[Rfam]
Nucleotides: 111
Stems, first nucleotide, its partner, number of pairs: 001111008013042001015041003021032003026083004043075004048071002050067003079103001084100006
Number, partner (000 for none) and nucleotide at each position: 001111c002110u003109c004108u005107u006106a007105u008104c009000a010000a011000g012000a013042g014000a015041g016040g017039c018000a019000g020000a021032g022031g023030g024000a025000c026083u027082a028081g029080g030023c031022c032021c033000u034000a035000u036000g037000a038000a039017g040016c041015c042013c043075g044074g045073c046072a047000a048071c049070c050067u051066u052065u053000c054000a055000a056000a057000a058000u059000c060000c061000g062000u063000u064000u065052g066051a067050a068000a069000a070049g071048g072046u073045g074044c075043u076000a077000c078000a079103u080029c081028c082027u083026a084100c085099a086098g087097g088096u089095c090000a091000u092000g093000u094000g095089g096088a097087u098086c099085u100084g101000g102000a103079a104008g105007a106006u107005a108004a109003g110002a111001g
A member of the RNA family "SAM riboswitch aptamer (S box leader)" from Pontibacillus litoralis, 111 nucleotides long.
It scores 93 bits against the family's covariance model.